[Rfam]
RNA sequence: AACAUCGAGGGCGGAACAGGCAGCCGCCACACCCUUUGGGUCUGAAAGAGAUGUAGGAGUGCCACCCUACCGUAUGUU
Number, nucleotide and partner (000 for none) at each position: 001a078002a077003c076004a075005u000006c072007g071008a000009g000010g028011g027012c026013g025014g024015a000016a000017c000018a000019g063020g062021c061022a060023g000024c014025c013026g012027c011028c010029a000030c048031a041032c040033c039034c038035u000036u000037u000038g034039g033040g032041u031042c000043u000044g000045a000046a000047a000048g030049a000050g000051a000052u000053g070054u069055a068056g067057g066058a000059g000060u022061g021062c020063c019064a000065c000066c057067c056068u055069a054070c053071c007072g006073u000074a000075u004076g003077u002078u001
Rfam assigns this 78-nucleotide RNA sequence from Streptococcus sp. zg-36 to the family "skipping-rope RNA". The organism belongs to Streptococcus, within Bacteria. It is annotated as a small RNA. The match comes from Rfam's covariance-model search (62 bits).